RNA sequence: AAAGAAGAAAGAAAUAGCCUCUCCUAGGCUUUGUCUGUUAUAUUUGGCGAGACAUAGCCUAACUGAGGUUAAUUCUGAUUCUUUUA
Numbered sequence: 001a002a003a004g005a006a007g008a009a010a011g012a013a014a015u016a017g018c019c020u021c022u023c024c025u026a027g028g029c030u031u032u033g034u035c036u037g038u039u040a041u042a043u044u045u046g047g048c049g050a051g052a053c054a055u056a057g058c059c060u061a062a063c064u065g066a067g068g069u070u071a072a073u074u075c076u077g078a079u080u081c082u083u084u085u086a
Stems, first nucleotide, its partner, number of pairs: 012074002015071006027059004032054005
RNA: mir-282 microRNA precursor family
Organism: Oryctes borbonicus